[Rfam]
RNA sequence: GAGUCUAACAUGUAUGCAAGCAGGUGGGCGGCAAACCCAUUGAUGCGCAAGUAAACUGACAGGUGGGACCCCCGUAAAAAAGGGUGCACCAUCGACCGACCGUGAUCUUCUGUGAAAGGUUUGAGUGUGAGCAUACCUGUUGGGACCCGAAAGAUGGUGAACUAUGCCUGAGCAGGGCGAAGCCAGAGGAAACUCUGGUGGAGGCUCGUAGCGAUACUGACGUGCAAAUCGUUCGUCAGACUUGGGUAUAGGGGCGAAAGACUAAUCGAACCAUCUAGUAGCUGGUU
Numbered sequence: 001g002a003g004u005c006u007a008a009c010a011u012g013u014a015u016g017c018a019a020g021c022a023g024g025u026g027g028g029c030g031g032c033a034a035a036c037c038c039a040u041u042g043a044u045g046c047g048c049a050a051g052u053a054a055a056c057u058g059a060c061a062g063g064u065g066g067g068a069c070c071c072c073c074g075u076a077a078a079a080a081a082g083g084g085u086g087c088a089c090c091a092u093c094g095a096c097c098g099a100c101c102g103u104g105a106u107c108u109u110c111u112g113u114g115a116a117a118g119g120u121u122u123g124a125g126u127g128u129g130a131g132c133a134u135a136c137c138u139g140u141u142g143g144g145a146c147c148c149g150a151a152a153g154a155u156g157g158u159g160a161a162c163u164a165u166g167c168c169u170g171a172g173c174a175g176g177g178c179g180a181a182g183c184c185a186g187a188g189g190a191a192a193c194u195c196u197g198g199u200g201g202a203g204g205c206u207c208g209u210a211g212c213g214a215u216a217c218u219g220a221c222g223u224g225c226a227a228a229u230c231g232u233u234c235g236u237c238a239g240a241c242u243u244g245g246g247u248a249u250a251g252g253g254g255c256g257a258a259a260g261a262c263u264a265a266u267c268g269a270a271c272c273a274u275c276u277a278g279u280a281g282c283u284g285g286u287u
Stems, first nucleotide, its partner, number of pairs: 005143006012136006020046003025039004050057002062093005070084002095126002097123003100119002107112001146285002149282001153275006162251011173239001175207004182199007211236004216232002219230002253263002
RNA: Eukaryotic large subunit ribosomal RNA, nucleotides 688 to 974